[Rfam]
RNA sequence: UAAAAUGCGAUGAAGAAGAAGAGUAUCUAAGGAAGAAUUGUGCAGAGAGUUGAUGGUCGGUGCAAAUCAACCAAUUCCCUUGGUGAAUGGGCUUCUGAGCAGUGCUGUGAACAGGUAACCUCAUUAGCAGAUAACCGGCGGAAUCCGUUAUGAUUCAUUGAGAGCACAAUGUUUGUUAGUCAUGCAUUGUGAACUAGGGUGGUACCGCGACAAAAGCUCGUCCCUUUG
Numbered sequence: 001u002a003a004a005a006u007g008c009g010a011u012g013a014a015g016a017a018g019a020a021g022a023g024u025a026u027c028u029a030a031g032g033a034a035g036a037a038u039u040g041u042g043c044a045g046a047g048a049g050u051u052g053a054u055g056g057u058c059g060g061u062g063c064a065a066a067u068c069a070a071c072c073a074a075u076u077c078c079c080u081u082g083g084u085g086a087a088u089g090g091g092c093u094u095c096u097g098a099g100c101a102g103u104g105c106u107g108u109g110a111a112c113a114g115g116u117a118a119c120c121u122c123a124u125u126a127g128c129a130g131a132u133a134a135c136c137g138g139c140g141g142a143a144u145c146c147g148u149u150a151u152g153a154u155u156c157a158u159u160g161a162g163a164g165c166a167c168a169a170u171g172u173u174u175g176u177u178a179g180u181c182a183u184g185c186a187u188u189g190u191g192a193a194c195u196a197g198g199g200u201g202g203u204a205c206c207g208c209g210a211c212a213a214a215a216g217c218u219c220g221u222c223c224c225u226u227u228g
Base pairs, nucleotide, nucleotide: 007100008099015095016094017093018092027083028082029081030080031079038074039073040072049071050070051069052068053067054066103134105130106129107128108127136147137146138145165191166190167189168188169187170186171185196225197224198223199222207221208220209219210218
Shown here is a 228-nucleotide RNA from Baia soyae, a member of the family "T-box leader".
The source organism's lineage runs through Bacteria, Bacillati, Bacilli, Thermoactinomycetaceae and Baia.
A reference for the family is Winkler et al. (2001), "The GA motif: an RNA element common to bacterial antitermination systems, rRNA, and eukaryotic RNAs", RNA.